Rfam assigns this 421-nucleotide RNA from Halomonas halmophila to the family "cspA thermoregulator". Rfam links the family to the GO terms response to temperature stimulus and regulation of translation. The match comes from Rfam's covariance-model search (84 bits). The source organism's lineage runs through Bacteria, Gammaproteobacteria, Oceanospirillales, Halomonadaceae and Halomonas.
RNA sequence: ACCUGUGCGCCGCACAAGCGCAUGCUAGUUCGCAGUAGGUUAGCAAGUCGCAUAUCGCAAGUGGUCAUCGAAACGCUCUAGUGUCGAUUUCCCGGUGAAACGAUUCUUGUUUUACCCACUGCAACUCGGGUAUUUCCCGGUAAAUCUUCUCUAUUGAGGAAUUCGCAAAAUGGCUACUGGUACAGUUAAGUGGUUCAACGACACUAAAGGCUUCGGCUUCAUCUCUCCGGACGACAACGGUGACGACCUGUUCGCUCACUUCUCCGAGAUUCAGGCUGAAGGCUUCAAGUCUCUGCAGGACGGCCAGAAGGUUUCCUUCGACGUCACUCAGGGCAAGAAAGGCCUGCAGGCUUCCAACAUCAAGGCUCAGGAUUAAUCUCCUGAUUUGAUGUUUGUCGUGCUCCUUGCAGCAUGACACCCG
Numbered sequence: 001a002c003c004u005g006u007g008c009g010c011c012g013c014a015c016a017a018g019c020g021c022a023u024g025c026u027a028g029u030u031c032g033c034a035g036u037a038g039g040u041u042a043g044c045a046a047g048u049c050g051c052a053u054a055u056c057g058c059a060a061g062u063g064g065u066c067a068u069c070g071a072a073a074c075g076c077u078c079u080a081g082u083g084u085c086g087a088u089u090u091c092c093c094g095g096u097g098a099a100a101c102g103a104u105u106c107u108u109g110u111u112u113u114a115c116c117c118a119c120u121g122c123a124a125c126u127c128g129g130g131u132a133u134u135u136c137c138c139g140g141u142a143a144a145u146c147u148u149c150u151c152u153a154u155u156g157a158g159g160a161a162u163u164c165g166c167a168a169a170a171u172g173g174c175u176a177c178u179g180g181u182a183c184a185g186u187u188a189a190g191u192g193g194u195u196c197a198a199c200g201a202c203a204c205u206a207a208a209g210g211c212u213u214c215g216g217c218u219u220c221a222u223c224u225c226u227c228c229g230g231a232c233g234a235c236a237a238c239g240g241u242g243a244c245g246a247c248c249u250g251u252u253c254g255c256u257c258a259c260u261u262c263u264c265c266g267a268g269a270u271u272c273a274g275g276c277u278g279a280a281g282g283c284u285u286c287a288a289g290u291c292u293c294u295g296c297a298g299g300a301c302g303g304c305c306a307g308a309a310g311g312u313u314u315c316c317u318u319c320g321a322c323g324u325c326a327c328u329c330a331g332g333g334c335a336a337g338a339a340a341g342g343c344c345u346g347c348a349g350g351c352u353u354c355c356a357a358c359a360u361c362a363a364g365g366c367u368c369a370g371g372a373u374u375a376a377u378c379u380c381c382u383g384a385u386u387u388g389a390u391g392u393u394u395g396u397c398g399u400g401c402u403c404c405u406u407g408c409a410g411c412a413u414g415a416c417a418c419c420c421g
Base pairs, nucleotide, nucleotide: 004024005023006022007021008020009019031229032228034226035225043219046218047217048216049215051209053207060205061204062203063202066200068198070196071195073194074193076192080134081133082132083131084130085128086127093121094120095119096118097117137180138179139178140177141176233325234324235323245253246252258312259311260310261309263308264307266305270297272295273294274293275292278291279290329346330345331344333343334342347370349368350367351365352364353363373388375386376385377384378383394417395416396415397414398413399412400411401410402409